[Rfam]
This 86-nucleotide RNA sequence from Conger conger belongs to the Rfam family "mir-135 microRNA precursor family". The source organism's lineage runs through Eukaryota, Bilateria, Vertebrata, Actinopterygii and Conger.
RNA sequence: UCACGCCUGUGUCCUAUGGCUUUCUAUUCCUAUGUGAUUGUGUGCAGUAUGUCAUGUAGGGUUCAAAGCCAUUGGCUACGGAGUGA
Numbered sequence: 001u002c003a004c005g006c007c008u009g010u011g012u013c014c015u016a017u018g019g020c021u022u023u024c025u026a027u028u029c030c031u032a033u034g035u036g037a038u039u040g041u042g043u044g045c046a047g048u049a050u051g052u053c054a055u056g057u058a059g060g061g062u063u064c065a066a067a068g069c070c071a072u073u074g075g076c077u078a079c080g081g082a083g084u085g086a
Base pairs, nucleotide, nucleotide: 002085003084004083006081007080009079010078011077013075014074016072017071018070019069020068021067022066023065026063028061029060030059031058032057033056034055035054036053037052